[Rfam]
This 75-nucleotide RNA from Marinobacter sp. B9-2 belongs to the Rfam family "c-di-GMP-I riboswitch aptamer". Taxonomically the source falls in Marinobacter (Bacteria, Pseudomonadota, Gammaproteobacteria, Pseudomonadales). From the family's description: GEMM was predicted in a large-scale screen for bacterial structured RNA regulatory elements.
RNA sequence: GGUUAUCGUAGCCAAACCAUUCGCGAGGAUGGGACGGAAAGCCAAGGGUCUCUUUGAGACAGCCUGGCUGCAUGG
Numbered sequence: 001g002g003u004u005a006u007c008g009u010a011g012c013c014a015a016a017c018c019a020u021u022c023g024c025g026a027g028g029a030u031g032g033g034a035c036g037g038a039a040a041g042c043c044a045a046g047g048g049u050c051u052c053u054u055u056g057a058g059a060c061a062g063c064c065u066g067g068c069u070g071c072a073u074g075g
Stems, first nucleotide, its partner, number of pairs: 012037002017032006040069004045065003048060005